[Rfam]
RNA sequence: CUGUGUGCCGGGCUUGUUUUCAGUUGCCUGCGGUUGGUUAGGAGGACUCAGGCAGCUAAAGCGAGUCUGGGACACCG
Numbered sequence: 001c002u003g004u005g006u007g008c009c010g011g012g013c014u015u016g017u018u019u020u021c022a023g024u025u026g027c028c029u030g031c032g033g034u035u036g037g038u039u040a041g042g043a044g045g046a047c048u049c050a051g052g053c054a055g056c057u058a059a060a061g062c063g064a065g066u067c068u069g070g071g072a073c074a075c076c077g
Stems, first nucleotide, its partner, number of pairs: 003075002006072001008070001010068011022057009032047001